A member of the RNA family "Histone 3' UTR stem-loop" from Sinocyclocheilus rhinocerous, 45 nucleotides long. Its family is annotated with mRNA 3'-end processing by stem-loop binding and cleavage in the Gene Ontology. About the family: The mRNAs of metazoan histone genes lack a poly-A tail. 3' end processing occurs at a site between a highly conserved stem-loop (modelled by this family) and a purine rich region around 20 nts downstream (the histone downstream element, or HDE). The stem-loop is bound by a 31 kDa stem-loop binding protein (SLBP - also termed the histone hairpin binding protein, or HBP). Together with U7 snRNA binding of the HDE, SLBP binding nucleate s the formation of the processing complex. The histone 3' UTR stem-loop is also involved in nucleocytoplasmic transport of the mRNA, and in stability regulation and translation efficiency in the cytoplasm. The organism belongs to Sinocyclocheilus, within Eukaryota. A search with the family's covariance model found it, with a score of 38 bits.
RNA sequence: ACAAAGGCUCUUUUAAGAGCCACCCAUUUCAUCUAUUACAGAGAG
Numbered sequence: 001a002c003a004a005a006g007g008c009u010c011u012u013u014u015a016a017g018a019g020c021c022a023c024c025c026a027u028u029u030c031a032u033c034u035a036u037u038a039c040a041g042a043g044a045g
Base pairs, nucleotide, nucleotide: 006021007020008019009018010017011016